[Rfam]
RNA: Guanidine-II riboswitch aptamer (mini-ykkC)
Organism: Actinomadura viridis
RNA sequence: CUGGGGGGACGACCCCCCAGACCCCCCGGCAAAGACGUCUUUCACCUCCUGGGGGGACGACCCCC
Numbered sequence: 001c002u003g004g005g006g007g008g009a010c011g012a013c014c015c016c017c018c019a020g021a022c023c024c025c026c027c028g029g030c031a032a033a034g035a036c037g038u039c040u041u042u043c044a045c046c047u048c049c050u051g052g053g054g055g056g057a058c059g060a061c062c063c064c065c
Stems, first nucleotide, its partner, number of pairs: 001020008052065005
Dot-bracket structure: ((((((((....))))))))...............................(((((....)))))